[Rfam]
RNA sequence: ACUACGGUUCGGGCAGAUACCCGGCACUGUCCGAACCGUCGAGGGGUCCUGGCGCAAGCCGGGGCCCCUUUCUUUUU
Numbered sequence: 001a002c003u004a005c006g007g008u009u010c011g012g013g014c015a016g017a018u019a020c021c022c023g024g025c026a027c028u029g030u031c032c033g034a035a036c037c038g039u040c041g042a043g044g045g046g047u048c049c050u051g052g053c054g055c056a057a058g059c060c061g062g063g064g065c066c067c068c069u070u071u072c073u074u075u076u077u
Stems, first nucleotide, its partner, number of pairs: 005038009043068008052059002
RNA: Bradyrhizobiaceae sRNA BjrC68